[Rfam]
RNA sequence: UGGGCAUCAGUGAUGAGUAGAUUCCAUUGUUAUCCUUGCACUUUGAUUGCUUGUGAAGAAAAUUAUGGGGAAAUUUCUAUCUGAGAUGCUC
Numbered sequence: 001u002g003g004g005c006a007u008c009a010g011u012g013a014u015g016a017g018u019a020g021a022u023u024c025c026a027u028u029g030u031u032a033u034c035c036u037u038g039c040a041c042u043u044u045g046a047u048u049g050c051u052u053g054u055g056a057a058g059a060a061a062a063u064u065a066u067g068g069g070g071a072a073a074u075u076u077c078u079a080u081c082u083g084a085g086a087u088g089c090u091c
Stems, first nucleotide, its partner, number of pairs: 002091007
Dot-bracket structure: .(((((((............................................................................)))))))